A member of the RNA family "Fluoride riboswitch aptamer (crcB RNA motif)" from Mojavia pulchra, 83 nucleotides long. The match comes from Rfam's covariance-model search (53 bits). The organism belongs to Mojavia pulchra, within Bacteria.
RNA sequence: CUUAAACAUGGCGAUGGAGCUCGCCAAAACCGCCUUUCCCAUCAAGGAUAAAUAAUUAAAAGGCUGAUGGCUCCUACUUUCCU
Dot-bracket structure: .........[[[[..((((((]]]]......((((((.....................))))))....)))))).........